[Rfam]
Shown here is a 195-nucleotide RNA from Panicum hallii, a member of the family "MIR1435 microRNA precursor family". A search with the family's covariance model found it, with a score of 98 bits. Pairs were carried over by alignment from the consensus structure, which was predicted with RNAalifold.

RNA sequence: UAAUUUUGUUCUAAGUCAAACUUUUCUAUCUUUGAAAGUUUAUAGAAAAAUGUUUUAACAUCUACUAGACCAAAUGAAUGCACUAUCAAGACCCAUUUCAUGGUGGAUUUAUUGAAAUUAAUUUGGUGUAGAUGUUUAUGUAUUUUUCCAUAAACUUGAUCAAAGUUAGAGAAGUUUCACUUAGGACAGAACUAA
Numbered sequence: 001u002a003a004u005u006u007u008g009u010u011c012u013a014a015g016u017c018a019a020a021c022u023u024u025u026c027u028a029u030c031u032u033u034g035a036a037a038g039u040u041u042a043u044a045g046a047a048a049a050a051u052g053u054u055u056u057a058a059c060a061u062c063u064a065c066u067a068g069a070c071c072a073a074a075u076g077a078a079u080g081c082a083c084u085a086u087c088a089a090g091a092c093c094c095a096u097u098u099c100a101u102g103g104u105g106g107a108u109u110u111a112u113u114g115a116a117a118u119u120a121a122u123u124u125g126g127u128g129u130a131g132a133u134g135u136u137u138a139u140g141u142a143u144u145u146u147u148c149c150a151u152a153a154a155c156u157u158g159a160u161c162a163a164a165g166u167u168a169g170a171g172a173a174g175u176u177u178c179a180c181u182u183a184g185g186a187c188a189g190a191a192c193u194a195a
Base pairs, nucleotide, nucleotide: 005190006189007188008187009186011184012183013182014181015180016179018177019176020175021174022173023172024171025170026169031164032163033162034161035160043150045148046147047146048145049144050143053140055138057136058135059134060133061132062131063130064129065128070126071125072124073123074122075121